[Rfam]
RNA sequence: AAUAAGUGCAGCCGUGGCUAUCCGUGUCCAACGUUUGACCAUCCGUCUUAUUUAAAAAAAUAUAUGAUAAAAUUUUUAAAAAAAUUAGUCACCUAUAAAGUACUAUUCAUGGUUUAUCAUCUAAUAGCAAUAAAAAUAUUAAUCAUAAAAAAAUUUCAAAAAAGACGAACGGUCAAACGUUUAACAUAAACAGUAUAAAACUGCACAUAUU
Numbered sequence: 001a002a003u004a005a006g007u008g009c010a011g012c013c014g015u016g017g018c019u020a021u022c023c024g025u026g027u028c029c030a031a032c033g034u035u036u037g038a039c040c041a042u043c044c045g046u047c048u049u050a051u052u053u054a055a056a057a058a059a060a061u062a063u064a065u066g067a068u069a070a071a072a073u074u075u076u077u078a079a080a081a082a083a084a085u086u087a088g089u090c091a092c093c094u095a096u097a098a099a100g101u102a103c104u105a106u107u108c109a110u111g112g113u114u115u116a117u118c119a120u121c122u123a124a125u126a127g128c129a130a131u132a133a134a135a136a137u138a139u140u141a142a143u144c145a146u147a148a149a150a151a152a153a154u155u156u157c158a159a160a161a162a163a164g165a166c167g168a169a170c171g172g173u174c175a176a177a178c179g180u181u182u183a184a185c186a187u188a189a190a191c192a193g194u195a196u197a198a199a200a201c202u203g204c205a206c207a208u209a210u211u
Base pairs, nucleotide, nucleotide: 027184030181031180032179034177035176036175037174038173039172040171042169044167045166046165047164048163049162051160052159053158
Dot-bracket structure: ..........................(..(((.(((((((.(.((((((.(((........................................................................................................))).)))))).).))))))).)))..)...........................
Shown here is a 211-nucleotide sequence from Oryza meridionalis, a member of the family "MIR812 microRNA precursor family". Taxonomically the source falls in Oryza (Eukaryota, Viridiplantae, Petrosaviidae, Oryzeae). Rfam 15.1 lists 57,451 matches to the family in 24 species.